[Rfam]
The record is a 103-nucleotide RNA sequence from Moschus moschiferus, which matches "Small nucleolar RNA SNORD121A" in Rfam. The base pairs follow the family's consensus structure, which was predicted with WAR. The literature on the family includes a 2006 paper in Nucleic Acids Res by Yang et al., "snoSeeker: an advanced computational package for screening of guide and orphan snoRNA genes in the human genome".

RNA sequence: GGGUGAAACUUAAUGAGGUCAUAAUUUCCAAGCACAUAUCUGACAAUUCUGUGUGGAAUUCAAAAAAAGAAAAAAUGUUGGGUGAAACUUGAGGGUAUUAUGC
Numbered sequence: 001g002g003g004u005g006a007a008a009c010u011u012a013a014u015g016a017g018g019u020c021a022u023a024a025u026u027u028c029c030a031a032g033c034a035c036a037u038a039u040c041u042g043a044c045a046a047u048u049c050u051g052u053g054u055g056g057a058a059u060u061c062a063a064a065a066a067a068a069g070a071a072a073a074a075a076u077g078u079u080g081g082g083u084g085a086a087a088c089u090u091g092a093g094g095g096u097a098u099u100a101u102g103c
Stems, first nucleotide, its partner, number of pairs: 001103001003101004008096004